[Rfam]
RNA sequence: ACCUUAUCAAGAGUGACUGAGGGACCGGCCCUAUGAAGUCACGGCAACCUGCCCAGGCGGGCAAGGUGCCAAAUCCGGCGGUAGUGUAUCGCAAGAUGAGGA
Numbered sequence: 001a002c003c004u005u006a007u008c009a010a011g012a013g014u015g016a017c018u019g020a021g022g023g024a025c026c027g028g029c030c031c032u033a034u035g036a037a038g039u040c041a042c043g044g045c046a047a048c049c050u051g052c053c054c055a056g057g058c059g060g061g062c063a064a065g066g067u068g069c070c071a072a073a074u075c076c077g078g079c080g081g082u083a084g085u086g087u088a089u090c091g092c093a094a095g096a097u098g099a100g101g102a
Stems, first nucleotide, its partner, number of pairs: 002101007013042005021031003025078004043070004048066002051062004074094001079091005
Rfam assigns this 102-nucleotide RNA from Flavonifractor sp. An100 to the family "SAM riboswitch aptamer (S box leader)". Lineage of the source: Bacteria > Bacillati > Bacillota > Clostridia > Flavonifractor. It scores 87 bits against the family's covariance model.